The record is a 75-nucleotide RNA sequence from Micromonospora pisi, which matches "ASpks TB sRNA" in Rfam. The literature on the family includes a 2009 paper in Mol Microbiol by Arnvig and Young, "Identification of small RNAs in Mycobacterium tuberculosis".

RNA sequence: CUUCACCGACCCCAACAGCAGUGGCCGGUCCGCCGGUCGGCCCUGCCCGUACGUCGCCAGCAGCGCCUGCGCCUC
Numbered sequence: 001c002u003u004c005a006c007c008g009a010c011c012c013c014a015a016c017a018g019c020a021g022u023g024g025c026c027g028g029u030c031c032g033c034c035g036g037u038c039g040g041c042c043c044u045g046c047c048c049g050u051a052c053g054u055c056g057c058c059a060g061c062a063g064c065g066c067c068u069g070c071g072c073c074u075c
Stems, first nucleotide, its partner, number of pairs: 016024001031071003038065002043060003047056001049054001